[Rfam]
RNA sequence: GCACAGGUGUAAUCUAGCCUCUCCUAGGCUUUGUCUGUUACCUUCCUUGGGAAUUCCACUAGCCAGACAUAGCCUGACAGAGGUUAGGUGAAAUCUGAAAA
Numbered sequence: 001g002c003a004c005a006g007g008u009g010u011a012a013u014c015u016a017g018c019c020u021c022u023c024c025u026a027g028g029c030u031u032u033g034u035c036u037g038u039u040a041c042c043u044u045c046c047u048u049g050g051g052a053a054u055u056c057c058a059c060u061a062g063c064c065a066g067a068c069a070u071a072g073c074c075u076g077a078c079a080g081a082g083g084u085u086a087g088g089u090g091a092a093a094u095c096u097g098a099a100a101a
Stems, first nucleotide, its partner, number of pairs: 012089009027074004032069005
RNA: mir-282 microRNA precursor family